[Rfam]
RNA sequence: AGGUUAUCAUACAACUGACGGAAGUGGAAUUAACCACAUGAAGUAUGACAAUGAUGUGCCGACCGUCUGGGCGAGUGCC
Numbered sequence: 001a002g003g004u005u006a007u008c009a010u011a012c013a014a015c016u017g018a019c020g021g022a023a024g025u026g027g028a029a030u031u032a033a034c035c036a037c038a039u040g041a042a043g044u045a046u047g048a049c050a051a052u053g054a055u056g057u058g059c060c061g062a063c064c065g066u067c068u069g070g071g072c073g074a075g076u077g078c079c
Stems, first nucleotide, its partner, number of pairs: 003052003007048006015040001017067005024037004057073004
Notes: Shown here is a 79-nucleotide RNA sequence from Kineothrix alysoides, a member of the family "ZMP/ZTP riboswitch aptamer (pfl RNA motif)". Taxonomically the source falls in Kineothrix (Bacteria, Bacillati, Lachnospirales, Lachnospiraceae). The match comes from Rfam's covariance-model search (54 bits).